RNA sequence: CUGCGGGGAUGAUCGCACCGAACUCUCUCUUGCCGAGGGCCCCGUGGGGAGGCUUCAACAUCAGGCUCUGAGCGGC
Numbered sequence: 001c002u003g004c005g006g007g008g009a010u011g012a013u014c015g016c017a018c019c020g021a022a023c024u025c026u027c028u029c030u031u032g033c034c035g036a037g038g039g040c041c042c043c044g045u046g047g048g049g050a051g052g053c054u055u056c057a058a059c060a061u062c063a064g065g066c067u068c069u070g071a072g073c074g075g076c
Base pairs, nucleotide, nucleotide: 001075002074003073004072
This 76-nucleotide RNA from Eurystomus gularis belongs to the Rfam family "Small nucleolar RNA SNORD26". Its Rfam clan is "SNORD26 clan". The family has 17 seed sequences and 451 matches in Rfam 15.1. The family's consensus secondary structure was predicted with PFOLD.